[Rfam]
RNA sequence: GACCCAGUAUCCAAAUUGUCACCGUAUGGUGCGCGUUUCAAGCAAUCGCUUGAAUAGGGACUGGGUCGAAC
Number, nucleotide and partner (000 for none) at each position: 001g067002a066003c065004c064005c063006a062007g061008u060009a000010u059011c058012c057013a000014a000015a000016u000017u035018g034019u033020c031021a030022c029023c028024g000025u000026a000027u000028g023029g022030u021031g020032c000033g019034c018035g017036u000037u054038u053039c052040a051041a050042g000043c000044a000045a000046u000047c000048g000049c000050u041051u040052g039053a038054a037055u000056a000057g012058g011059g010060a008061c007062u006063g005064g004065g003066u002067c001068g000069a000070a000071c000
The record is a 71-nucleotide RNA sequence, which matches "DUF3800-IX RNA" in Rfam. Pairs were carried over by alignment from the consensus structure, which is taken from published work.